Trypanosomatid snoRNA TB10cs1H3: a 75-nucleotide RNA from Trypanosoma rangeli. A search with the family's covariance model found it, with a score of 77 bits.
[Rfam]
RNA sequence: CCAGCAGGAAGGAACGUGGCAGGCUGCGGAGGGCUGCAAUCCGUCCCUCCUGCGGUUCAACAACAUGAUCCAAGA
Numbered sequence: 001c002c003a004g005c006a007g008g009a010a011g012g013a014a015c016g017u018g019g020c021a022g023g024c025u026g027c028g029g030a031g032g033g034c035u036g037c038a039a040u041c042c043g044u045c046c047c048u049c050c051u052g053c054g055g056u057u058c059a060a061c062a063a064c065a066u067g068a069u070c071c072a073a074g075a
Base pairs, nucleotide, nucleotide: 011071012070013069015067016066017065018064023056024055025054026053027052029049030048031047032046033045
On this family, see Liang et al., RNA 2005: "A genome-wide analysis of C/D and H/ACA-like small nucleolar RNAs in Trypanosoma brucei reveals a trypanosome-specific pattern of rRNA modification". Gene Ontology terms of the family: nucleolus and RNA processing. The family's RNA type in Rfam is H/ACA-box small nucleolar RNA.